[Rfam]
RNA sequence: UUAUCCUCUCAGGCCUUUUGUCCAAAAUCAAGUGUAGUAUUUGUUCUUUAUAGUUUAGCAACUAUAAUGAGGGGCAUUGUUCCUCUUGUUGUUAACAGGAAACCAAGGCUCUGGUUUGCUAUCUUUGGCUUCCACAGGUGUCCCUUACCUUACACUAUCAGCAAGGUGACACCGAUCACUU
Dot-bracket structure: ......(.(..((.(....).)).).)....................((((((........)))))).(((((((...)))))))............((((.(((......(((....)))....))).))))...(((((.((((.(............).))))..)))))........
A member of the RNA family "U2 spliceosomal RNA" from Rhizopus arrhizus, 181 nucleotides long.
It scores 86 bits against the family's covariance model.
Gene Ontology terms of the family: pre-mRNA branch point binding, mRNA branch site recognition and U2 snRNP.
The base pairs follow the family's consensus structure, which is taken from published work.
The literature on the family includes a 1997 paper in Nucleic Acids Res by Zwieb, "The uRNA database".